[Rfam]
RNA sequence: CAAUGGAAGGUGCAUCUAGGACUGUCUAACCUGAGAAUGGUGAAUCCAGGGUCAAUCUCAGGUUCGUCAGCCCAUGAGGUGCCUUCUUCAG
Numbered sequence: 001c002a003a004u005g006g007a008a009g010g011u012g013c014a015u016c017u018a019g020g021a022c023u024g025u026c027u028a029a030c031c032u033g034a035g036a037a038u039g040g041u042g043a044a045u046c047c048a049g050g051g052u053c054a055a056u057c058u059c060a061g062g063u064u065c066g067u068c069a070g071c072c073c074a075u076g077a078g079g080u081g082c083c084u085u086c087u088u089c090a091g
Stems, first nucleotide, its partner, number of pairs: 005088002008084006015077002019073002022070003026066001028064009038054002
RNA: mir-1388 microRNA precursor family
Organism: Phascolarctos cinereus